[Rfam]
RNA sequence: CUGCCGGGAUGAUCCCACACCGAACUCUCUCUUGCCGAUGCCCCCGUGGGGAAGCUUUUAAAUGAGGCUCUGAGCGGC
Numbered sequence: 001c002u003g004c005c006g007g008g009a010u011g012a013u014c015c016c017a018c019a020c021c022g023a024a025c026u027c028u029c030u031c032u033u034g035c036c037g038a039u040g041c042c043c044c045c046g047u048g049g050g051g052a053a054g055c056u057u058u059u060a061a062a063u064g065a066g067g068c069u070c071u072g073a074g075c076g077g078c
Base pairs, nucleotide, nucleotide: 001077002076003075004074

The family of this 78-nucleotide RNA from Rynchops niger is "Small nucleolar RNA SNORD26". The family's RNA type in Rfam is C/D-box small nucleolar RNA. The family's consensus secondary structure was predicted with PFOLD. The family is grouped with related families in Rfam's "SNORD26 clan". Rfam links the family to the GO terms nucleolus and RNA processing.